[Rfam]
Rfam assigns this 133-nucleotide RNA sequence to the family "Small nucleolar RNA SNORA1". The base pairs follow the family's consensus structure, which was predicted with PFOLD. ACA1 is a member of the H/ACA class of snoRNA that guide the sites of modification of uridines to pseudouridines. Rfam's curators put it in the seed alignment.

RNA sequence: AGCCUCUUUCUAGAUGAGAAUGGGCACUGUCGAUCAUGGUGUCUGAAAAUUGUAAGUGGCUAAAUUGAAACACAGGUUAUGCUUCCAUAAGAGUAUAUGUAUUGCAGUGGUGACAAUGAGACCUGUAACACUU
Numbered sequence: 001a002g003c004c005u006c007u008u009u010c011u012a013g014a015u016g017a018g019a020a021u022g023g024g025c026a027c028u029g030u031c032g033a034u035c036a037u038g039g040u041g042u043c044u045g046a047a048a049a050u051u052g053u054a055a056g057u058g059g060c061u062a063a064a065u066u067g068a069a070a071c072a073c074a075g076g077u078u079a080u081g082c083u084u085c086c087a088u089a090a091g092a093g094u095a096u097a098u099g100u101a102u103u104g105c106a107g108u109g110g111u112g113a114c115a116a117u118g119a120g121a122c123c124u125g126u127a128a129c130a131c132u133u
Base pairs, nucleotide, nucleotide: 002060003059004058006056007055008054021045022044023043024042025041026040027039072126073125074124075123076122086112087111088110090108